[Rfam]
About this RNA:
The family of this 376-nucleotide part of an RNA from Cloacimonas acidaminivorans is "Bacterial large subunit ribosomal RNA". The organism belongs to Cloacimonas acidaminivorans (SeqCode), within Bacteria.
RNA sequence: GAUAAUGCGGGUGAGAAACCCGCACACCAUAAGCCCAAGGAUUCCUGAGUAAAGUUAAUCUGCUCAGGGUUAGUCGGUCCCUAAGGUAUAGCGAUAAGGCGAAGCUGAUGGGAAUCAGGUUAAUAAUCCUGAACCUGAGUAUUGAGUGAAGGAGUGACGCGACGGUGCUGCAAGGACAGCUGUUGGAAUAGCUGUUGAAUGCAGGUAGGAAGUGGGGCAGGUAAAUCCGUUCCACAAAUAUUCCGAGAUGCAGGACGAGGCGUAAGCCGUAAAGCUUGUUUAGAGACGUUGCCGAGAAAUAGCUUCUAGCGUUAAUCAAUAUUCAGACCGUACCGCAAACCGACACAGGUGGGCGAGGAGAGUAUCCUAAGGUGUU
Number, nucleotide and partner (000 for none) at each position: 001g000002a000003u000004a000005a000006u024007g023008c022009g021010g020011g019012u000013g000014a000015g000016a000017a000018a000019c011020c010021c009022g008023c007024a006025c374026a373027c372028c371029a000030u000031a000032a000033g354034c353035c352036c351037a000038a000039g334040g333041a000042u000043u000044c068045c067046u066047g065048a064049g063050u000051a000052a000053a061054g060055u000056u000057a000058a000059u000060c054061u053062g000063c049064u048065c047066a046067g045068g044069g000070u000071u000072a000073g000074u000075c330076g329077g328078u327079c000080c111081c110082u000083a000084a000085g106086g105087u104088a000089u102090a000091g100092c099093g000094a000095u000096a000097a000098g000099g092100c091101g000102a089103a000104g087105c086106u085107g000108a000109u000110g081111g080112g000113a000114a000115u132116c131117a130118g129119g128120u000121u000122a000123a000124u000125a000126a000127u000128c119129c118130u117131g116132a115133a000134c000135c326136u325137g324138a323139g322140u321141a320142u319143u318144g317145a316146g310147u309148g000149a000150a307151g306152g305153a304154g303155u302156g000157a000158c000159g292160c291161g290162a289163c000164g000165g000166u284167g000168c000169u000170g279171c278172a277173a276174g275175g196176a195177c194178a193179g192180c191181u000182g000183u000184u000185g000186g000187a000188a000189u000190a000191g180192c179193u178194g177195u176196u175197g256198a000199a000200u000201g251202c250203a249204g000205g000206u000207a000208g244209g243210a242211a000212g235213u234214g233215g232216g231217g230218c229219a000220g228221g227222u000223a000224a000225a000226u000227c221228c220229g218230u217231u216232c215233c214234a213235c212236a000237a000238a000239u000240a000241u000242u210243c209244c208245g000246a000247g000248a000249u203250g202251c201252a000253g000254g000255a000256c197257g000258a000259g268260g267261c266262g000263u000264a000265a000266g261267c260268c259269g000270u000271a000272a000273a000274g000275c174276u173277u172278g171279u170280u000281u000282a000283g000284a166285g000286a000287c000288g000289u162290u161291g160292c159293c000294g000295a000296g000297a000298a000299a000300u000301a000302g155303c154304u153305u152306c151307u150308a000309g147310c146311g000312u000313u000314a000315a000316u145317c144318a143319a142320u141321a140322u139323u138324c137325a136326g135327a078328c077329c076330g075331u000332a000333c040334c039335g000336c000337a000338a000339a000340c349341c348342g000343a000344c000345a000346c000347a000348g341349g340350u000351g036352g035353g034354c033355g000356a368357g367358g366359a365360g000361a000362g000363u000364a000365u359366c358367c357368u356369a000370a000371g028372g027373u026374g025375u000376u000